[Rfam]
RNA sequence: GUCUUCUGCUCAAAAGAACUGUGCUAAAACUGCGUAGUCCGGCUUUUCCCCGGUGUAUGCAGUAAUGCUAGCAGAGUACCAAGUGGAAGAAGAUGAAACGGCUCCUCACCGGAGAUGAAACGCAGUCGGACCUCUUUCUUAAUGUCCAGUGGCUUGUGUUUCGAGGUCUGGAGCAACAAUA
Number, nucleotide and partner (000 for none) at each position: 001g000002u000003c000004u000005u000006c000007u000008g000009c000010u000011c000012a000013a000014a000015a000016g000017a000018a000019c076020u075021g000022u073023g072024c071025u070026a069027a000028a000029a066030c000031u064032g063033c000034g000035u057036a056037g000038u000039c053040c052041g051042g050043c000044u000045u000046u000047u000048c000049c000050c042051c041052g040053g039054u000055g000056u036057a035058u000059g000060c000061a000062g000063u032064a031065a000066u029067g000068c000069u026070a025071g024072c023073a022074g000075a020076g019077u000078a000079c000080c000081a000082a000083g000084u000085g000086g000087a000088a000089g000090a000091a000092g000093a000094u000095g000096a000097a000098a000099c000100g000101g174102c173103u172104c171105c170106u000107c000108a167109c000110c000111g000112g000113a000114g000115a000116u000117g000118a000119a000120a000121c000122g000123c152124a000125g150126u000127c000128g147129g146130a145131c000132c000133u000134c000135u000136u000137u000138c000139u000140u000141a000142a000143u000144g000145u130146c129147c128148a000149g000150u125151g000152g123153c000154u000155u000156g000157u000158g000159u000160u000161u000162c000163g000164a000165g000166g000167u108168c000169u000170g105171g104172a103173g102174c101175a000176a000177c000178a000179a000180u000181a000

The family of this 181-nucleotide sequence from Danionella cerebrum is "Small nucleolar RNA SNORA81". The match comes from Rfam's covariance-model search (88 bits). Rfam links the family to the GO terms RNA processing and nucleolus. Rfam 15.1 lists 1,161 matches to the family in 643 species.